c-di-AMP riboswitch aptamer (ydaO/yuaA leader): a 125-nucleotide sequence from Sinanaerobacter chloroacetimidivorans. A search with the family's covariance model found it, with a score of 74 bits. Rfam's curators write: This family represents a conserved RNA structure found upstream of the ydaO and yuaA genes in Bacillus subtilis and related genes in other bacteria. The ydaO/yuaA element is thought to act as a genetic 'off' switch for the ydaO and yuaA genes in its native state.
RNA sequence: AUGUUGCUAUAGCCGAAUCUCCGAAAAGGAGUACCGGGGAACUAAUCUUGGGGUGAAGCUUUCACAAGCGGGGUAACCUCUACCCUAAUCCGUCAACUAACCUGGAAGGCAAGAGGAGGAUACAA
Numbered sequence: 001a002u003g004u005u006g007c008u009a010u011a012g013c014c015g016a017a018u019c020u021c022c023g024a025a026a027a028g029g030a031g032u033a034c035c036g037g038g039g040a041a042c043u044a045a046u047c048u049u050g051g052g053g054u055g056a057a058g059c060u061u062u063c064a065c066a067a068g069c070g071g072g073g074u075a076a077c078c079u080c081u082a083c084c085c086u087a088a089u090c091c092g093u094c095a096a097c098u099a100a101c102c103u104g105g106a107a108g109g110c111a112a113g114a115g116g117a118g119g120a121u122a123c124a125a
Base pairs, nucleotide, nucleotide: 012110013109014108019031020030021029022028034105035104036103037102038101043050044049051091052090053089059068060067061066071085072084073083074082